[Rfam]
Nucleotides: 102
Base pairs, nucleotide, nucleotide: 012025013024015022039084040083041082042081043080049074050073051072053068
Number, partner (000 for none) and nucleotide at each position: 001000a002000u003000a004000u005000g006000a007000a008000g009000g010000a011000a012025g013024c014000a015022u016000g017000g018000u019000a020000g021000u022015g023000a024013g025012c026000a027000c028000a029000g030000a031000a032000a033000u034000c035000a036000a037000u038000u039084g040083g041082g042081u043080c044000u045000g046000c047000a048000u049074g050073u051072c052000u053068g054000c055000c056000c057000c058000u059000g060000a061000u062000g063000a064000u065000a066000c067000u068053c069000u070000c071000u072051g073050a074049u075000u076000u077000g078000g079000g080043g081042g082041c083040c084039u085000g086000g087000u088000u089000u090000a091000c092000g093000a094000c095000c096000u097000a098000c099000a100000u101000u102000u